[Rfam]
RNA sequence: AGCACAACUGAAUAGGCUCCUCAAGGGUGGUCGGCUCAUCCCCUCACGAAAGGGGGUGUUGCCAUAUCUGCACAUGAUGUCAUUUCGCUCAUGCUCCAAUUCGGGCUAUUUUUGAUCGCAGCCCUCACUUUGGUCGUGACGAUCAUGAAACAUAUGCUGGACAACCAGAAUAAAAAGAAAUAGACCGCCUUAUGAGUUGGACGCUCAGGCGGUCUAUUUCGUCCUGUAAGUCGUACGUGAGCCGACACCCUUGAUGGGUAUCAGUUGUGCAACGACCGUGGGUGUUACCAGCACCUGCG
Dot-bracket structure: .((((.(((.(.(.((((.((((((((.(.(.....((.(((((......))))).)).......(((..((......((............))........((.(.........................).)).))..))).......................................).)..)))).)))).........(((...............))).............)))).).(((.......))).).))).))))......((((((((((...))))))))))
The family of this 299-nucleotide sequence from Tumebacillus flagellatus is "BsrG". Gene Ontology terms of the family: toxin activity and autolysis. bsrE, bsrG and bsrH pair through intermolecular interactions with antisense sRNAs. For this family Rfam cites "Novel small RNA-encoding genes in the intergenic regions of Bacillus subtilis" (Saito et al., Gene, 2008). By type it is a small RNA. Lineage of the source: Bacteria > Bacillati > Bacillota > Bacilli > Tumebacillus.